[Rfam]
RNA: small nucleolar RNA snoR137
Organism: Eucalyptus grandis
RNA sequence: GUUGCUUCCUAAUGGCGAACUCCCUCUAAUCAAAGAUGAGGGAUGAUUCGAGUUUUCGAAGCAUAAGUCGGACAAUUUUAAUCAAUGUUAAACAGCGCCAGUGCAUUGGCACUCCCUGUCUGCUAACAUAUUA
Numbered sequence: 001g002u003u004g005c006u007u008c009c010u011a012a013u014g015g016c017g018a019a020c021u022c023c024c025u026c027u028a029a030u031c032a033a034a035g036a037u038g039a040g041g042g043a044u045g046a047u048u049c050g051a052g053u054u055u056u057c058g059a060a061g062c063a064u065a066a067g068u069c070g071g072a073c074a075a076u077u078u079u080a081a082u083c084a085a086u087g088u089u090a091a092a093c094a095g096c097g098c099c100a101g102u103g104c105a106u107u108g109g110c111a112c113u114c115c116c117u118g119u120c121u122g123c124u125a126a127c128a129u130a131u132u133a
Stems, first nucleotide, its partner, number of pairs: 003063006016050004020045001021043005082126001084124001086122002094113002098109004